[Rfam]
RNA sequence: UGCACCCGGGUAAGUCCUAUACGGCUAGCUCCCAGCAAAUCCUCCAGGGCUUGAUCGCAGCAAAGGUAGUUGGUUGUAGCGGCGCGAUAUAGUAAGCUUACCCACCC
Number, nucleotide and partner (000 for none) at each position: 001u000002g000003c000004a000005c000006c000007c000008g103009g102010g101011u100012a099013a098014g097015u096016c000017c092018u091019a090020u089021a088022c086023g085024g083025c082026u000027a000028g000029c000030u000031c000032c000033c000034a000035g000036c000037a000038a000039a000040u000041c000042c000043u000044c000045c000046a000047g000048g000049g000050c000051u000052u000053g000054a000055u000056c000057g000058c000059a000060g000061c000062a000063a000064a000065g000066g000067u000068a000069g000070u000071u000072g000073g000074u000075u000076g000077u000078a000079g000080c000081g000082g025083c024084g000085c023086g022087a000088u021089a020090u019091a018092g017093u000094a000095a000096g015097c014098u013099u012100a011101c010102c009103c008104a000105c000106c000107c000
Source information: The family of this 107-nucleotide RNA sequence from Bacteroides luti is "Bacteroidales small SRP". The match comes from Rfam's covariance-model search (122 bits). Pairs were carried over by alignment from the consensus structure, which is taken from published work. The family is grouped with related families in Rfam's "SRP clan". Rfam links the family to the GO terms SRP-dependent cotranslational protein targeting to membrane, signal sequence recognition and signal recognition particle, plasma membrane targeting. By type it is a non-coding RNA gene. The literature on the family includes a 2020 paper in Nat Commun by Ryan et al., "A high-resolution transcriptome map identifies small RNA regulation of metabolism in the gut microbe Bacteroides thetaiotaomicron".